[Rfam]
RNA sequence: AUUAUUCAUCGGUAAAACUAUUGAAAGAUAGUGACACAAAGCCAAAGGGUCUAAGGUCCUCAUAUAGAGGAUUAUGACAGCCGGUUGCCACA
Numbered sequence: 001a002u003u004a005u006u007c008a009u010c011g012g013u014a015a016a017a018c019u020a021u022u023g024a025a026a027g028a029u030a031g032u033g034a035c036a037c038a039a040a041g042c043c044a045a046a047g048g049g050u051c052u053a054a055g056g057u058c059c060u061c062a063u064a065u066a067g068a069g070g071a072u073u074a075u076g077a078c079a080g081c082c083g084g085u086u087g088c089c090a091c092a
Base pairs, nucleotide, nucleotide: 012037013036017032018031019030020029021028022027040086041085042084043083047082048081049078050077051076056072057071058070059069060068061067
A member of the RNA family "c-di-GMP-I riboswitch aptamer" from Anaerostipes rhamnosivorans, 92 nucleotides long. NCBI's taxonomy places the organism under Bacteria, Clostridia, Lachnospirales, Lachnospiraceae, Anaerostipes.